[Rfam]
This 123-nucleotide RNA sequence from Mikania micrantha belongs to the Rfam family "MIR396 microRNA precursor family". It scores 89 bits against the family's covariance model. The family's consensus secondary structure was predicted with WAR.

RNA sequence: CUUUCUAUUCUUCCACGGCUUUCUUGAACUGCAUGCUUCAAUCUUGAUGCAUUGGAUCUUCCUUUUUGAUUUUGGCUUCAAUAUAUCUUUGUAGUUCAAUAAAGCUGUGGGAAGAUAGAGAGG
Numbered sequence: 001c002u003u004u005c006u007a008u009u010c011u012u013c014c015a016c017g018g019c020u021u022u023c024u025u026g027a028a029c030u031g032c033a034u035g036c037u038u039c040a041a042u043c044u045u046g047a048u049g050c051a052u053u054g055g056a057u058c059u060u061c062c063u064u065u066u067u068g069a070u071u072u073u074g075g076c077u078u079c080a081a082u083a084u085a086u087c088u089u090u091g092u093a094g095u096u097c098a099a100u101a102a103a104g105c106u107g108u109g110g111g112a113a114g115a116u117a118g119a120g121a122g123g
Stems, first nucleotide, its partner, number of pairs: 003120005013110003017106006024099004029094005